[Rfam]
RNA sequence: GUGCCUCUCCCUCCGCCCACUCAGCCACCACGUGGAAGCCGAGUGAGGGCCUCGGGGCAGCAU
Number, nucleotide and partner (000 for none) at each position: 001g063002u062003g061004c060005c057006u056007c055008u054009c000010c000011c000012u000013c000014c000015g050016c049017c048018c047019a000020c043021u042022c041023a000024g039025c038026c000027a000028c035029c034030a000031c000032g000033u000034g029035g028036a000037a000038g025039c024040c000041g022042a021043g020044u000045g000046a000047g018048g017049g016050c015051c000052u000053c000054g008055g007056g006057g005058c000059a000060g004061c003062a002063u001
The family of this 63-nucleotide sequence from Oryza glumipatula is "MIR2907 microRNA precursor family". Pairs were carried over by alignment from the consensus structure, which was predicted with RNAalifold. The literature on the family includes a 2010 paper in Genomics by Jian et al., "Identification of novel stress-regulated microRNAs from Oryza sativa L". The family has 3 seed sequences and 136 matches in Rfam 15.1. It scores 71 bits against the family's covariance model.